[Rfam]
RNA sequence: CGGGGGCAUGGUGGACUCCCCGUGAGGCGUGCGCCCAAGUUCCGC
Numbered sequence: 001c002g003g004g005g006g007c008a009u010g011g012u013g014g015a016c017u018c019c020c021c022g023u024g025a026g027g028c029g030u031g032c033g034c035c036c037a038a039g040u041u042c043c044g045c
Stems, first nucleotide, its partner, number of pairs: 001022006011045005026035003